Bacillaceae-1 RNA: a 114-nucleotide sequence from Bacillus sp. J14TS2. It scores 51 bits against the family's covariance model. Rfam classes the family as a small RNA.

RNA sequence: UUCAGAGGAUUAAAGGCUAAAAUCGCGACAUCCUGUUGGCAGGUUCAAAGCACGACAUCCUGUCACUAGUACGUCCUGUACGUCGCUACGCCUUUGUGACCAACAUCUUGUUGG
Numbered sequence: 001u002u003c004a005g006a007g008g009a010u011u012a013a014a015g016g017c018u019a020a021a022a023u024c025g026c027g028a029c030a031u032c033c034u035g036u037u038g039g040c041a042g043g044u045u046c047a048a049a050g051c052a053c054g055a056c057a058u059c060c061u062g063u064c065a066c067u068a069g070u071a072c073g074u075c076c077u078g079u080a081c082g083u084c085g086c087u088a089c090g091c092c093u094u095u096g097u098g099a100c101c102a103a104c105a106u107c108u109u110g111u112u113g114g
Stems, first nucleotide, its partner, number of pairs: 011096007025086005100114005